[Rfam]
RNA sequence: CUCGGUCCUCGGUAGUGGCCCUCGGGCGGUCUCGACCAGCAGCACCGGUCGACGCACCCGCGGGCCUCGAUCGAAGACCGGC
Numbered sequence: 001c002u003c004g005g006u007c008c009u010c011g012g013u014a015g016u017g018g019c020c021c022u023c024g025g026g027c028g029g030u031c032u033c034g035a036c037c038a039g040c041a042g043c044a045c046c047g048g049u050c051g052a053c054g055c056a057c058c059c060g061c062g063g064g065c066c067u068c069g070a071u072c073g074a075a076g077a078c079c080g081g082c
Stems, first nucleotide, its partner, number of pairs: 002081006009074005017066005023060004028055001